Description:
The family of this 85-nucleotide RNA from Rubrivivax gelatinosus is "SucA RNA motif". For this family Rfam cites "Identification of 22 candidate structured RNAs in bacteria using the CMfinder comparative genomics pipeline" (Weinberg et al., Nucleic Acids Res, 2007).
RNA sequence: UCGCAAUCCGCCAACCGGUGAAGCCGGGGCCGCGGAAGGUUGAUCAACCCAUCGUAGCCCUGGGAACCGGGGCGAAAGGUGCGCG
Number, nucleotide and partner (000 for none) at each position: 001u000002c085003g084004c083005a000006a000007u036008c035009c034010g033011c032012c000013a000014a000015c000016c026017g025018g024019u023020g000021a000022a000023g019024c018025c017026g016027g000028g000029g000030c000031c000032g011033c010034g009035g008036a007037a000038g049039g048040u047041u046042g000043a000044u000045c000046a041047a040048c039049c038050c081051a080052u079053c078054g000055u000056a000057g073058c072059c071060c070061u069062g068063g067064g000065a000066a000067c063068c062069g061070g060071g059072g058073c057074g000075a000076a000077a000078g053079g052080u051081g050082c000083g004084c003085g002
By type it is a cis-regulatory element. Gene Ontology term of the family: regulation of translation.